[Rfam]
RNA sequence: GAACGAGAUGAUGAUCAUGAUUUUGUUUCCCUAUUGGUUUGAUUGCCGAAAUGAUGGCUUCAUGCAUGUAUUAGCUCUAUCUGAUCGUUC
Numbered sequence: 001g002a003a004c005g006a007g008a009u010g011a012u013g014a015u016c017a018u019g020a021u022u023u024u025g026u027u028u029c030c031c032u033a034u035u036g037g038u039u040u041g042a043u044u045g046c047c048g049a050a051a052u053g054a055u056g057g058c059u060u061c062a063u064g065c066a067u068g069u070a071u072u073a074g075c076u077c078u079a080u081c082u083g084a085u086c087g088u089u090c
Stems, first nucleotide, its partner, number of pairs: 002089004041061001045058003
Rfam assigns this 90-nucleotide RNA sequence from Camellia sinensis to the family "Small nucleolar RNA Z102/R77". Pairs were carried over by alignment from the consensus structure, which was predicted with PFOLD. The family is grouped with related families in Rfam's "SNORD44 clan". It scores 90 bits against the family's covariance model. Rfam 15.1 lists 1,346 matches to the family in 224 species. On this family, see Chen et al., Nucleic Acids Res 2003: "The high diversity of snoRNAs in plants: identification and comparative study of 120 snoRNA genes from Oryza sativa". Rfam links the family to the GO terms nucleolus and RNA processing.